[Rfam]
RNA sequence: ACCUGCCCCGGGUGCGCCUCCGUGCGCGCCCCCGGCAUCAGACAGCACCCUGUGCCAUGGGAAGAACAUGGCGUUUUUGGGCGUU
Numbered sequence: 001a002c003c004u005g006c007c008c009c010g011g012g013u014g015c016g017c018c019u020c021c022g023u024g025c026g027c028g029c030c031c032c033c034g035g036c037a038u039c040a041g042a043c044a045g046c047a048c049c050c051u052g053u054g055c056c057a058u059g060g061g062a063a064g065a066a067c068a069u070g071g072c073g074u075u076u077u078u079g080g081g082c083g084u085u
Stems, first nucleotide, its partner, number of pairs: 004037004010031007052074008
RNA: nrdJ RNA